RNA sequence: ACACGAUAACGGCAAACUUGGCGAAAGCCAGGGACGCAAAGCUACAGGGUCUUCCAAUCCAUGGAUUGAUGACAGCCAGCUACCGAA
Number, nucleotide and partner (000 for none) at each position: 001a000002c000003a000004c000005g000006a000007u000008a000009a000010c000011g000012g037013c036014a000015a000016a000017c032018u031019u030020g029021g028022c027023g000024a000025a000026a000027g022028c021029c020030a019031g018032g017033g000034a000035c000036g013037c012038a000039a000040a081041g080042c079043u078044a000045c000046a000047g077048g076049g073050u072051c071052u000053u000054c000055c000056a067057a066058u065059c064060c000061a000062u000063g000064g059065a058066u057067u056068g000069a000070u000071g051072a050073c049074a000075g000076c048077c047078a043079g042080c041081u040082a000083c000084c000085g000086a000087a000
Description:
Shown here is an 87-nucleotide RNA sequence from Paenibacillus sp. MY03, a member of the family "c-di-GMP-I riboswitch aptamer". The match comes from Rfam's covariance-model search (78 bits).